Annotation: Shown here is a 67-nucleotide RNA sequence, a member of the family "DUF3800-IX RNA". It is annotated as a small RNA. Pairs were carried over by alignment from the consensus structure, which is taken from published work.
RNA sequence: UCUCUCUCGACGAAUCGUCGCUCUCUCAUGGGCGGCUUGCCUGAAAGGGCUAGUCGAGAGAGUUUCU
Numbered sequence: 001u002c003u004c005u006c007u008c009g010a011c012g013a014a015u016c017g018u019c020g021c022u023c024u025c026u027c028a029u030g031g032g033c034g035g036c037u038u039g040c041c042u043g044a045a046a047g048g049g050c051u052a053g054u055c056g057a058g059a060g061a062g063u064u065u066c067u
Stems, first nucleotide, its partner, number of pairs: 002062010017036006039050004